Shown here is a 94-nucleotide RNA sequence from Lachnospiraceae bacterium KM106-2, a member of the family "c-di-GMP-I riboswitch aptamer". The source organism's lineage runs through Bacteria, Bacillota, Clostridia, Lachnospirales and Lachnospiraceae. For this family Rfam cites "Identification of 22 candidate structured RNAs in bacteria using the CMfinder comparative genomics pipeline" (Weinberg et al., Nucleic Acids Res, 2007). The match comes from Rfam's covariance-model search (73 bits).
RNA sequence: CAACUAAAUAGGCAUAGCCAGAGAAAUCUGGUGACGCAAAGCUAUAGGGACUAAAAUGUAAGAUAAUCUUACAUCAUGUCAGCCAGUUGCCAAA
Number, nucleotide and partner (000 for none) at each position: 001c000002a000003a000004c000005u000006a000007a000008a000009u000010a000011g000012g037013c036014a000015u000016a000017g032018c031019c030020a029021g028022a027023g000024a000025a000026a000027u022028c021029u020030g019031g018032u017033g000034a000035c000036g013037c012038a000039a000040a088041g087042c086043u085044a000045u000046a000047g084048g083049g080050a079051c078052u000053a000054a000055a000056a074057u073058g072059u071060a070061a069062g068063a067064u000065a000066a000067u063068c062069u061070u060071a059072c058073a057074u056075c000076a000077u000078g051079u050080c049081a000082g000083c048084c047085a043086g042087u041088u040089g000090c000091c000092a000093a000094a000